[Rfam]
RNA sequence: AAGUACUCCCAUCCCCAUUUUUAUAUCUCCCUCUCCCCAAUAUAGCCAAAAUCUUUCCUUUUGGGGUAACAGCUUUAUGGUUGAAAUCCCAUCUCGAGGAGGAGUUUUAGUCGGUAGGCGCCACGGCUAAUCCGAACUACCCCCCUUCAGGGGGUGUCUUUUGAAGAUUUCCCCUCCUCGAGGCUA
Number, nucleotide and partner (000 for none) at each position: 001a000002a000003g000004u000005a000006c000007u000008c000009c000010c000011a000012u000013c000014c000015c000016c000017a000018u000019u000020u000021u000022u000023a000024u000025a000026u000027c000028u000029c000030c000031c000032u000033c000034u000035c066036c065037c064038c063039a062040a061041u000042a000043u000044a000045g000046c000047c000048a000049a000050a000051a000052u000053c000054u000055u000056u000057c000058c000059u000060u000061u040062u039063g038064g037065g036066g035067u000068a000069a000070c000071a185072g184073c183074u182075u181076u000077a000078u000079g000080g000081u000082u000083g000084a000085a000086a000087u000088c000089c000090c000091a000092u000093c000094u000095c180096g179097a178098g177099g176100a000101g173102g172103a000104g000105u000106u000107u000108u000109a000110g000111u135112c134113g133114g132115u000116a000117g000118g000119c000120g127121c126122c000123a000124c000125g000126g121127c120128u000129a000130a000131u000132c114133c113134g112135a111136a000137c000138u156139a155140c154141c153142c152143c151144c000145c000146u000147u000148c000149a000150g000151g143152g142153g141154g140155u139156g138157u000158c000159u000160u000161u000162u000163g000164a000165a000166g000167a000168u000169u000170u000171c000172c102173c101174c000175u000176c099177c098178u097179c096180g095181a075182g074183g073184c072185u071186a000
R2 RNA element: a 186-nucleotide sequence from Agrilus planipennis.
A search with the family's covariance model found it, with a score of 44 bits.
The family has 15 seed sequences and 3,698 matches in Rfam 15.1.
The literature on the family includes a 1993 paper in Cell by Luan et al., "Reverse transcription of R2Bm RNA is primed by a nick at the chromosomal target site: a mechanism for non-LTR retrotransposition".
Its family is annotated with regulation of reverse transcription in the Gene Ontology.
This family represents the 3' UTR region of the R2 retrotransposable element. This family is known to interact with the R2-encoded reverse transcriptase in a reaction known as target primed reverse transcription (TPRT).